Rfam assigns this 63-nucleotide RNA sequence from Pseudomonas panipatensis to the family "Fluoride riboswitch aptamer (crcB RNA motif)".
[Rfam]
RNA sequence: UCGCCGCCAGGAGAUGGCAUUCCUCCUUAAACCGCCCCCGUGGCUGAUGAUGCCUACGCAUAC
Numbered sequence: 001u002c003g004c005c006g007c008c009a010g011g012a013g014a015u016g017g018c019a020u021u022c023c024u025c026c027u028u029a030a031a032c033c034g035c036c037c038c039c040g041u042g043g044c045u046g047a048u049g050a051u052g053c054c055u056a057c058g059c060a061u062a063c
Stems, first nucleotide, its partner, number of pairs: 010026004016054006034044003
A search with the family's covariance model found it, with a score of 56 bits. Rfam links the family to the GO terms positive regulation of gene expression and response to fluoride. Taxonomically the source falls in Pseudomonas (Bacteria, Pseudomonadati, Pseudomonadota, Gammaproteobacteria).